[Rfam]
RNA sequence: UCGGUUCAUAAAGCGCCAGGACUAUUUUGCCGAACGGUGGGAAAAUAGUUGACGAGGUUGGAGGUUAUCGAGUAUUCGGCGGGUGCCUCCCGAUUGUACAUCUCAAUUGUUAUGCUGUUUCUUAAAACAACAAGGCAACUUGUUGGCCAAAGGAAAUGAGCAAGAUGAUUA
Numbered sequence: 001u002c003g004g005u006u007c008a009u010a011a012a013g014c015g016c017c018a019g020g021a022c023u024a025u026u027u028u029g030c031c032g033a034a035c036g037g038u039g040g041g042a043a044a045a046u047a048g049u050u051g052a053c054g055a056g057g058u059u060g061g062a063g064g065u066u067a068u069c070g071a072g073u074a075u076u077c078g079g080c081g082g083g084u085g086c087c088u089c090c091c092g093a094u095u096g097u098a099c100a101u102c103u104c105a106a107u108u109g110u111u112a113u114g115c116u117g118u119u120u121c122u123u124a125a126a127a128c129a130a131c132a133a134g135g136c137a138a139c140u141u142g143u144u145g146g147c148c149a150a151a152g153g154a155a156a157u158g159a160g161c162a163a164g165a166u167g168a169u170u171a
Base pairs, nucleotide, nucleotide: 020050021049022048023047024046025045026044027043028041060090061089062088063087064086068079069078070077071076091109092108093107094106095105096104114161115160116159117157118156119155120154128145129144130143131142132141133140134139

This 171-nucleotide RNA from Virgibacillus salexigens belongs to the Rfam family "glmS glucosamine-6-phosphate activated ribozyme aptamer". The family's consensus secondary structure is taken from published work.